[Rfam]
A member of the RNA family "Y RNA" from Nomascus leucogenys, 102 nucleotides long. The family's RNA type in Rfam is non-coding RNA gene.

RNA sequence: GGCUCAUCCAAGUGUGGUGGUAUUUACAACUAAUUGAUCACAACUAGUUACAGAUUUCUUUGUUCCUUUUCCACUCCCACUGCUUCACUUGACUAGCCGAAA
Numbered sequence: 001g002g003c004u005c006a007u008c009c010a011a012g013u014g015u016g017g018u019g020g021u022a023u024u025u026a027c028a029a030c031u032a033a034u035u036g037a038u039c040a041c042a043a044c045u046a047g048u049u050a051c052a053g054a055u056u057u058c059u060u061u062g063u064u065c066c067u068u069u070u071c072c073a074c075u076c077c078c079a080c081u082g083c084u085u086c087a088c089u090u091g092a093c094u095a096g097c098c099g100a101a102a
Stems, first nucleotide, its partner, number of pairs: 001098004007092002010090002014086001016081005028064003032060002